A member of the RNA family "Group II catalytic intron D1-D4-7" from Shewanella baltica, 138 nucleotides long. The family has 244 seed sequences and 1,296 matches in Rfam 15.1. The organism belongs to Shewanella baltica, within Bacteria. Rfam links the family to the GO term Group II intron splicing. The pairing is the family consensus, mapped onto this sequence. Rfam describes the family as follows. Group II introns are found in rRNA, tRNA and mRNA of organelles in fungi, plants and protists, and also in mRNA in bacteria.
RNA sequence: CCAUCUGUAUCACCAGAUGAACCUAGGAGCCUGAAUAAAGUAGCGGCUCUGACAAUGUAACGAAGAUUGGUCUUUGACCAAUCGGGAUAUGAACCGCGAGGGGAUGAUCCUCCUGAUAACCACAAAUCGGGUGAGUGC
Numbered sequence: 001c002c003a004u005c006u007g008u009a010u011c012a013c014c015a016g017a018u019g020a021a022c023c024u025a026g027g028a029g030c031c032u033g034a035a036u037a038a039a040g041u042a043g044c045g046g047c048u049c050u051g052a053c054a055a056u057g058u059a060a061c062g063a064a065g066a067u068u069g070g071u072c073u074u075u076g077a078c079c080a081a082u083c084g085g086g087a088u089a090u091g092a093a094c095c096g097c098g099a100g101g102g103g104a105u106g107a108u109c110c111u112c113c114u115g116a117u118a119a120c121c122a123c124a125a126a127u128c129g130g131g132u133g134a135g136u137g138c
Stems, first nucleotide, its partner, number of pairs: 002019006027049005065083006084111004094101002112131006